[Rfam]
RNA: Mason-Pfizer monkey virus packaging signal
RNA sequence: UGGUGCCCAAUGGUGUGGCUUUGGAUAUGGGGGAAUUUGUGAGGGAAGAGGUGUCUAAGUGUUUGGAGGAAGGAAAAAAAGUGAAAGUCAGUUGGACAAAGAUCGCCAUGGGAGCCUGGCUCGGCACUCUUAAAGGUACAGUAGUGCCUAACUAUGGGACAAGAAUUAAGUAUCAUAAAGUUUUUGUUAAGCAAUUAAAAGAAGCUUUAAAGACACGGGGAGUAAAGGUUAAGAGUAAUGAUCUUUUUAAGUUUUUUGACCUUAUUAAGGACACCUGUCUGU
Numbered sequence: 001u002g003g004u005g006c007c008c009a010a011u012g013g014u015g016u017g018g019c020u021u022u023g024g025a026u027a028u029g030g031g032g033g034a035a036u037u038u039g040u041g042a043g044g045g046a047a048g049a050g051g052u053g054u055c056u057a058a059g060u061g062u063u064u065g066g067a068g069g070a071a072g073g074a075a076a077a078a079a080a081g082u083g084a085a086a087g088u089c090a091g092u093u094g095g096a097c098a099a100a101g102a103u104c105g106c107c108a109u110g111g112g113a114g115c116c117u118g119g120c121u122c123g124g125c126a127c128u129c130u131u132a133a134a135g136g137u138a139c140a141g142u143a144g145u146g147c148c149u150a151a152c153u154a155u156g157g158g159a160c161a162a163g164a165a166u167u168a169a170g171u172a173u174c175a176u177a178a179a180g181u182u183u184u185u186g187u188u189a190a191g192c193a194a195u196u197a198a199a200a201g202a203a204g205c206u207u208u209a210a211a212g213a214c215a216c217g218g219g220g221a222g223u224a225a226a227g228g229u230u231a232a233g234a235g236u237a238a239u240g241a242u243c244u245u246u247u248u249a250a251g252u253u254u255u256u257u258g259a260c261c262u263u264a265u266u267a268a269g270g271a272c273a274c275c276u277g278u279c280u281g282u
Stems, first nucleotide, its partner, number of pairs: 006033003013028003038057001040049001092136002096131001101127001107123001110120001142162001144160002147158004167209003170205002216258008226244006267282001269280004